[Rfam]
RNA sequence: GGGGCUGAAUUGGAUUCGACAGGAUCAGGAAGGCUUGUGGAGCAUGUCGUGGGGCGGUUUGCCACGUAAAAAGCCGCAAAAAAAUAGUCGCAAACGACGAAAACUACGCACUAGCAGCUUAAUAACCUGCUAGAGCACUUCUACCCUAGCUUCCGCUUGUAAGACGGGGAAUCAUAGAAGUUCAAACCCAAACAAGAUAGCGAGGGAUGCUUUGACUAGAGAGCUGAACCGCGAAAUAGAAUUCUGGUAUGUUAGUAAGUGGCGUGUUUGUUCGCAGCUUGCUAACGAGAAUAAAGACAAACUAAGCAUGUAGCGCCAUUGGUUAGAAUGGUUUUGGACGCGGGUUCGAAACCCGCCAGCUCCACCA
Numbered sequence: 001g002g003g004g005c006u007g008a009a010u011u012g013g014a015u016u017c018g019a020c021a022g023g024a025u026c027a028g029g030a031a032g033g034c035u036u037g038u039g040g041a042g043c044a045u046g047u048c049g050u051g052g053g054g055c056g057g058u059u060u061g062c063c064a065c066g067u068a069a070a071a072a073g074c075c076g077c078a079a080a081a082a083a084a085u086a087g088u089c090g091c092a093a094a095c096g097a098c099g100a101a102a103a104c105u106a107c108g109c110a111c112u113a114g115c116a117g118c119u120u121a122a123u124a125a126c127c128u129g130c131u132a133g134a135g136c137a138c139u140u141c142u143a144c145c146c147u148a149g150c151u152u153c154c155g156c157u158u159g160u161a162a163g164a165c166g167g168g169g170a171a172u173c174a175u176a177g178a179a180g181u182u183c184a185a186a187c188c189c190a191a192a193c194a195a196g197a198u199a200g201c202g203a204g205g206g207a208u209g210c211u212u213u214g215a216c217u218a219g220a221g222a223g224c225u226g227a228a229c230c231g232c233g234a235a236a237u238a239g240a241a242u243u244c245u246g247g248u249a250u251g252u253u254a255g256u257a258a259g260u261g262g263c264g265u266g267u268u269u270g271u272u273c274g275c276a277g278c279u280u281g282c283u284a285a286c287g288a289g290a291a292u293a294a295a296g297a298c299a300a301a302c303u304a305a306g307c308a309u310g311u312a313g314c315g316c317c318a319u320u321g322g323u324u325a326g327a328a329u330g331g332u333u334u335u336g337g338a339c340g341c342g343g344g345u346u347c348g349a350a351a352c353c354c355g356c357c358a359g360c361u362c363c364a365c366c367a
Stems, first nucleotide, its partner, number of pairs: 001363007020336008032324004037319004042314001043310005048066005054077006111133007137181006144169004150163003156196005201231002213249002216246001251286010262275003266302007340356005
The family of this 367-nucleotide RNA sequence from Agarivorans albus is "transfer-messenger RNA".
The base pairs follow the family's consensus structure, which is taken from published work.